[Rfam]
RNA sequence: CAGGUAAAGCAGAUGUUCGCGGCUGGCAGGCCGAAAGGUGCCAGGUGAGGAAAGUCCGGGCUCCACAGGGCAGGACGCCGGAUAACGUCCGGCGGAGGCAACUCCAGGGACAGUGCAACAGAAAGAUACCGCGUCAGCAAUGAGCCGAGGAUACCCGGCAGUGCGUAGCAAUUUCAGGUAUACUGGGCUCAUUGCUGACGUAAGGGUGGAAAGGCAGUGUAAGAGACUACCGUCCGUCUGGUAACAGGCGGAGCCAUGUAAACCCCGUCCGGAGCAAGACCGAAACGAGACAUAACCCGGCCCGGGUGUCUCAGGUGGGUCGCUUGAGCCUGCCGGCGACGGCAGGACUAGAUAGAUGAACAUCCAAUGACAUAACCCGGCUUACCGCUUUGCCUGAAAA
Numbered sequence: 001c002a003g004g005u006a007a008a009g010c011a012g013a014u015g016u017u018c019g020c021g022g023c024u025g026g027c028a029g030g031c032c033g034a035a036a037g038g039u040g041c042c043a044g045g046u047g048a049g050g051a052a053a054g055u056c057c058g059g060g061c062u063c064c065a066c067a068g069g070g071c072a073g074g075a076c077g078c079c080g081g082a083u084a085a086c087g088u089c090c091g092g093c094g095g096a097g098g099c100a101a102c103u104c105c106a107g108g109g110a111c112a113g114u115g116c117a118a119c120a121g122a123a124a125g126a127u128a129c130c131g132c133g134u135c136a137g138c139a140a141u142g143a144g145c146c147g148a149g150g151a152u153a154c155c156c157g158g159c160a161g162u163g164c165g166u167a168g169c170a171a172u173u174u175c176a177g178g179u180a181u182a183c184u185g186g187g188c189u190c191a192u193u194g195c196u197g198a199c200g201u202a203a204g205g206g207u208g209g210a211a212a213g214g215c216a217g218u219g220u221a222a223g224a225g226a227c228u229a230c231c232g233u234c235c236g237u238c239u240g241g242u243a244a245c246a247g248g249c250g251g252a253g254c255c256a257u258g259u260a261a262a263c264c265c266c267g268u269c270c271g272g273a274g275c276a277a278g279a280c281c282g283a284a285a286c287g288a289g290a291c292a293u294a295a296c297c298c299g300g301c302c303c304g305g306g307u308g309u310c311u312c313a314g315g316u317g318g319g320u321c322g323c324u325u326g327a328g329c330c331u332g333c334c335g336g337c338g339a340c341g342g343c344a345g346g347a348c349u350a351g352a353u354a355g356a357u358g359a360a361c362a363u364c365c366a367a368u369g370a371c372a373u374a375a376c377c378c379g380g381c382u383u384a385c386c387g388c389u390u391u392g393c394c395u396g397a398a399a400a
Base pairs, nucleotide, nucleotide: 001396002395003394004393005392006391007390008389009388010387012364013363014362015361016360017359018358020047021046023044024043025042026041027040028039052383053382054381056380057379058378059377060376061274062273063272064271068303069302070301071300073270074269075268076267077266078092079091080090081089082088093107094105095104096103097102108265109264113263114262115259116258117257129205130204131201132200133199134198135197136196137195138194139193140192141191142190143189144188145187146186213231214230216228217227218226232254233252234251235250236249237248238247239246240245278321279320280319281318287312288311289310290309291308292307296306297305298304329346330345331344332343333342334341335340
The record is a 400-nucleotide sequence from Anaerosacchariphilus hominis, which matches "Bacterial RNase P class A" in Rfam. It scores 299 bits against the family's covariance model. By type it is a ribozyme.